[Rfam]
RNA sequence: GAACCGGCCGAGGGGGGCCCUGACAAAGGGCUGAGACUCUGCUGGUGGCGCGGUCUGUCCGACCGGCCGCAGCGCAGUGACCCUUUGAACCUGAUCCGGAUCAUACCGGCGAAGGGACGGGAUCAACGCGCUCU
Numbered sequence: 001g002a003a004c005c006g007g008c009c010g011a012g013g014g015g016g017g018c019c020c021u022g023a024c025a026a027a028g029g030g031c032u033g034a035g036a037c038u039c040u041g042c043u044g045g046u047g048g049c050g051c052g053g054u055c056u057g058u059c060c061g062a063c064c065g066g067c068c069g070c071a072g073c074g075c076a077g078u079g080a081c082c083c084u085u086u087g088a089a090c091c092u093g094a095u096c097c098g099g100a101u102c103a104u105a106c107c108g109g110c111g112a113a114g115g116g117a118c119g120g121g122a123u124c125a126a127c128g129c130g131c132u133c134u
Stems, first nucleotide, its partner, number of pairs: 008120003011084004016078001017031005039077004090115003096109004